[Rfam]
RNA: Potassium channel RNA editing signal
Organism: Actinia tenebrosa
RNA sequence: UUCAGAUAUGGUGAUAUGGUACCAACAACUGUCCCUGGUAAAAUUGUAGGCAGUUUAUGUUCCCUGAGUGGUGUGCUGGUAAUAGCCCUUCCAGUACCUGUUAUAGUAUCCAAU
Numbered sequence: 001u002u003c004a005g006a007u008a009u010g011g012u013g014a015u016a017u018g019g020u021a022c023c024a025a026c027a028a029c030u031g032u033c034c035c036u037g038g039u040a041a042a043a044u045u046g047u048a049g050g051c052a053g054u055u056u057a058u059g060u061u062c063c064c065u066g067a068g069u070g071g072u073g074u075g076c077u078g079g080u081a082a083u084a085g086c087c088c089u090u091c092c093a094g095u096a097c098c099u100g101u102u103a104u105a106g107u108a109u110c111c112a113a114u
Stems, first nucleotide, its partner, number of pairs: 002113001005110001007108003011104001013102004018097001021095002037077004049063002
Dot-bracket structure: .(..(.(((.(.((((.(..((..............((((........((...........))..........))))................)).).)))).).))).)..).